RNA: U5 spliceosomal RNA
RNA sequence: CACUCAUGUUUCUCUUCAGAUCGUAUAAAUCUUUCGCCUUUUACUAAAGAUUUCCGUGGAGAGGAACAAUAUGAGUUCCAACUAAUUUUUAGAUGCCCGGCGAAAGCUGGGCU
Numbered sequence: 001c002a003c004u005c006a007u008g009u010u011u012c013u014c015u016u017c018a019g020a021u022c023g024u025a026u027a028a029a030u031c032u033u034u035c036g037c038c039u040u041u042u043a044c045u046a047a048a049g050a051u052u053u054c055c056g057u058g059g060a061g062a063g064g065a066a067c068a069a070u071a072u073g074a075g076u077u078c079c080a081a082c083u084a085a086u087u088u089u090u091a092g093a094u095g096c097c098c099g100g101c102g103a104a105a106g107c108u109g110g111g112c113u
Base pairs, nucleotide, nucleotide: 003075004074005073006072008067009066010065011064012063013062014061015060016059017058018057027053028052029051030050031049032048033047034046093113095112096111097110098109099108100107